The record is a 134-nucleotide RNA from Sinocyclocheilus grahami, which matches "Small nucleolar RNA SNORA9" in Rfam. Rfam links the family to the GO terms nucleolus and RNA processing. The family is grouped with related families in Rfam's "SNORA9 clan". The base pairs follow the family's consensus structure, which was predicted with PFOLD. From the family's description: ACA9 is a member of the H/ACA class of snoRNA that guide the sites of modification of uridines to pseudouridines.
RNA sequence: UUGCAGGCUGACCAGCAAGGUCGAGUCAUUGUGACUCUGUCCUUUCCUGUAAUGUCUGCUAGAGCGAUUUUUGAGGUGGUUUGAGGCCUGCUGCGGUGCCCUUCCCGGCAUGGUUAUAUAAUCUUCAAACAUUU
Numbered sequence: 001u002u003g004c005a006g007g008c009u010g011a012c013c014a015g016c017a018a019g020g021u022c023g024a025g026u027c028a029u030u031g032u033g034a035c036u037c038u039g040u041c042c043u044u045u046c047c048u049g050u051a052a053u054g055u056c057u058g059c060u061a062g063a064g065c066g067a068u069u070u071u072u073g074a075g076g077u078g079g080u081u082u083g084a085g086g087c088c089u090g091c092u093g094c095g096g097u098g099c100c101c102u103u104c105c106c107g108g109c110a111u112g113g114u115u116a117u118a119u120a121a122u123c124u125u126c127a128a129a130c131a132u133u134u
Base pairs, nucleotide, nucleotide: 003059004058005057006056007055008054018043019042020041023037024036025035026034027033072127073126074125075124076123087113088112089110090109091108093106095105096104